[Rfam]
RNA sequence: UUCGUCAGCUAAUGGGCUAAUCUUUUAUUUGCAGAACUAAGACUGCGUAAGUGACGAAAUAUUUUAUAGAAGCAUUUGGCACUACAGAUGUGAUUGAACAUGUAUGCACCGGAUCGGGGCUUCGGCAACGGUUGGGGGCUUAAGUGAACAAUCUGCAAAAUAUAUUUUUUUAACAAAAUUAGGCAAAAACUGAUAGAAUAGUGCUUCUGUCAGUUUUU
Dot-bracket structure: (((((((......................(((((..{{{{..)))))....)))))))((((((.......(((((((.[[[[[)))))))(((((..(((..........................................)))..)))))....))))))...............}}}}....((...(...((.]]]]].))...)...))...
Record summary:
The family of this 218-nucleotide RNA is "FuFi-1 RNA". The family's RNA type in Rfam is small RNA.